[Rfam]
RNA sequence: GAACCGGGCCGUGACUGGCGCGAAGAGGUGGGCACCCACCGGGGAGCGGCCCUGCACCGCUGCCGCGCGCCUGGGCGCCCACC
Dot-bracket structure: ...(.(((((((..(([[[[[......((((....))))..))..))))))).)......((((..]]]]]..))))......